RNA sequence: GCCUCAACCCCCCGGGAGGCUGAGCCCGCCGGAUCGCUUGAGCCCAGGAGUUCUGGGCUGCAGUGCGCUAUGCCGAGCGGGCGUCCGCGCUAAGGCCGGCAUCAAUAUGGUGAGCCCCGGGGAGCCGGGGCACACCAGGUUGACUAAGGAGGGGUGAACCGGCCCAGGUCGGAGACGGAGCAGGUCAAAGCUCCCGUGCUGGUCAGUAGCGGGAUGGCGCCUGUGAACAGUCCCUGUAGCACAGCCUGGGCAAUAGAGCGGGACCCAGCCUCUU
Numbered sequence: 001g002c003c004u005c006a007a008c009c010c011c012c013c014g015g016g017a018g019g020c021u022g023a024g025c026c027c028g029c030c031g032g033a034u035c036g037c038u039u040g041a042g043c044c045c046a047g048g049a050g051u052u053c054u055g056g057g058c059u060g061c062a063g064u065g066c067g068c069u070a071u072g073c074c075g076a077g078c079g080g081g082c083g084u085c086c087g088c089g090c091u092a093a094g095g096c097c098g099g100c101a102u103c104a105a106u107a108u109g110g111u112g113a114g115c116c117c118c119g120g121g122g123a124g125c126c127g128g129g130g131c132a133c134a135c136c137a138g139g140u141u142g143a144c145u146a147a148g149g150a151g152g153g154g155u156g157a158a159c160c161g162g163c164c165c166a167g168g169u170c171g172g173a174g175a176c177g178g179a180g181c182a183g184g185u186c187a188a189a190g191c192u193c194c195c196g197u198g199c200u201g202g203u204c205a206g207u208a209g210c211g212g213g214a215u216g217g218c219g220c221c222u223g224u225g226a227a228c229a230g231u232c233c234c235u236g237u238a239g240c241a242c243a244g245c246c247u248g249g250g251c252a253a254u255a256g257a258g259c260g261g262g263a264c265c266c267a268g269c270c271u272c273u274u
Stems, first nucleotide, its partner, number of pairs: 002016002022272003026268001028266001034261006042251007053244003057240007065232001067231003071227001073225001077224008085213002088211005094204009103142004108137005114131007144148001151194005161186004169178003